[Rfam]
RNA sequence: GUAGAGUAUUCAGAAUUGCACGGUGCAAUACCAACCGAGUUAGUCAAAACCGCGGUGGUCUUAUUAAUACGGGAUUUAUUCCAAAACAAAUUAAAUGG
Numbered sequence: 001g002u003a004g005a006g007u008a009u010u011c012a013g014a015a016u017u018g019c020a021c022g023g024u025g026c027a028a029u030a031c032c033a034a035c036c037g038a039g040u041u042a043g044u045c046a047a048a049a050c051c052g053c054g055g056u057g058g059u060c061u062u063a064u065u066a067a068u069a070c071g072g073g074a075u076u077u078a079u080u081c082c083a084a085a086a087c088a089a090a091u092u093a094a095a096u097g098g
Base pairs, nucleotide, nucleotide: 006070007069008068009067010066015029016028017027018026019025020024030059031058032057035055036054037053039050040049072082073081074080

A member of the RNA family "SAM-I/IV (S-adenosyl methionine) riboswitch aptamer" from Sphingobacterium corticibacter, 98 nucleotides long. The organism belongs to Sphingobacterium, within Bacteria. Pairs were carried over by alignment from the consensus structure, which is taken from published work.